Shown here is a 78-nucleotide RNA sequence from Geotrypetes seraphini, a member of the family "Mammalian CPEB3 ribozyme". The match comes from Rfam's covariance-model search (63 bits).
RNA sequence: AGUCGAAUUCCAGAGGCCACAGCAGAAACAUUCGCAUUGAGGCUUCUGUCAGAUUUCUAUGGAUCUGUGAAUUCUGCU
Numbered sequence: 001a002g003u004c005g006a007a008u009u010c011c012a013g014a015g016g017c018c019a020c021a022g023c024a025g026a027a028a029c030a031u032u033c034g035c036a037u038u039g040a041g042g043c044u045u046c047u048g049u050c051a052g053a054u055u056u057c058u059a060u061g062g063a064u065c066u067g068u069g070a071a072u073u074c075u076g077c078u
Base pairs, nucleotide, nucleotide: 013046014045015044016043017042018041021078022077023076024075025074026073027072029039030038050067051066052065053064054063055062056061
Pairs were carried over by alignment from the consensus structure, which is taken from published work.